[Rfam]
Notes:
Shown here is a 234-nucleotide RNA from Medicago truncatula, a member of the family "MIR2655 microRNA precursor family". The family's consensus secondary structure was predicted with RNAalifold. The match comes from Rfam's covariance-model search (227 bits). Lineage of the source: Eukaryota > Tracheophyta > Magnoliopsida > Trifolieae > Medicago.
RNA sequence: CCCAUAAAUAUUAAAAGGUCUGUUUAGGUCCCUUAACUUCAUUUAAAGUAUCGGUUUGGUCCCUUUUGUUAAUUUAAUUCAAAAAACGGUAAGUUUACGGACCAAACUAAUACUAAUUAAAUAAGUUAAAGGAUCAAAAUUUAACGUUUUUUUGAAUUAAAUUAACAGAAACGACCAAACUGAUACUUUAAAUAAAGUUAAGGGACCUAAACAGACUUUUUAUUACUUAUGGGA
Numbered sequence: 001c002c003c004a005u006a007a008a009u010a011u012u013a014a015a016a017g018g019u020c021u022g023u024u025u026a027g028g029u030c031c032c033u034u035a036a037c038u039u040c041a042u043u044u045a046a047a048g049u050a051u052c053g054g055u056u057u058g059g060u061c062c063c064u065u066u067u068g069u070u071a072a073u074u075u076a077a078u079u080c081a082a083a084a085a086a087c088g089g090u091a092a093g094u095u096u097a098c099g100g101a102c103c104a105a106a107c108u109a110a111u112a113c114u115a116a117u118u119a120a121a122u123a124a125g126u127u128a129a130a131g132g133a134u135c136a137a138a139a140u141u142u143a144a145c146g147u148u149u150u151u152u153u154g155a156a157u158u159a160a161a162u163u164a165a166c167a168g169a170a171a172c173g174a175c176c177a178a179a180c181u182g183a184u185a186c187u188u189u190a191a192a193u194a195a196a197g198u199u200a201a202g203g204g205a206c207c208u209a210a211a212c213a214g215a216c217u218u219u220u221u222a223u224u225a226c227u228u229a230u231g232g233g234a
Base pairs, nucleotide, nucleotide: 002232003231004230005229006228007227023211024210025209027207028206029205031203032202033201034200035199036198037197038196039195041193042192043191045189046188047187